[Rfam]
RNA sequence: CAACUCUGGAAAGCGACCGCGGGCGACCGCGGCCCACCGAAGGUGCAACGGUGCUCCGAUCCCUAUCGCAGCGCCCGAAUCUCUCAGGUUCCAUAACAGAGCGGGGAGG
Dot-bracket structure: (..(((((......(.(((((......))))).).(((((..(.(....((.......................))....).))).))).......)))))..).....
Annotation: This 109-nucleotide RNA sequence from Leucobacter ruminantium belongs to the Rfam family "Glycine riboswitch aptamer".